[Rfam]
This 80-nucleotide RNA from Enterocloster phage CB473P3 belongs to the Rfam family "skipping-rope RNA".
RNA sequence: GUUAUUUGAGGUCGGAAAUGGUUCCCGACACACUCCAAUGGAGUACCUGAGAUGAUGGAUACACCGCCCAUCCUUAUAAC
Numbered sequence: 001g002u003u004a005u006u007u008g009a010g011g012u013c014g015g016a017a018a019u020g021g022u023u024c025c026c027g028a029c030a031c032a033c034u035c036c037a038a039u040g041g042a043g044u045a046c047c048u049g050a051g052a053u054g055a056u057g058g059a060u061a062c063a064c065c066g067c068c069c070a071u072c073c074u075u076a077u078a079a080c
Stems, first nucleotide, its partner, number of pairs: 001080005008073001011029005019066004031049001032044004054072005
A search with the family's covariance model found it, with a score of 68 bits. The family's RNA type in Rfam is small RNA.